[Rfam]
RNA sequence: GGCUGCGUAGCUUAACUGGAUAGAGCACCGCACUACGGAUGCGGAGGUUCGGGGUUCGAAUCCCUGCGCGGUCA
Numbered sequence: 001g002g003c004u005g006c007g008u009a010g011c012u013u014a015a016c017u018g019g020a021u022a023g024a025g026c027a028c029c030g031c032a033c034u035a036c037g038g039a040u041g042c043g044g045a046g047g048u049u050c051g052g053g054g055u056u057c058g059a060a061u062c063c064c065u066g067c068g069c070g071g072u073c074a
Stems, first nucleotide, its partner, number of pairs: 001073007010026004028044005050066005
Shown here is a 74-nucleotide sequence from Cryomorpha ignava, a member of the family "tRNA".
Rfam classes the family as a transfer RNA.
NCBI's taxonomy places the organism under Bacteria, Pseudomonadati, Bacteroidota, Flavobacteriales, Cryomorpha.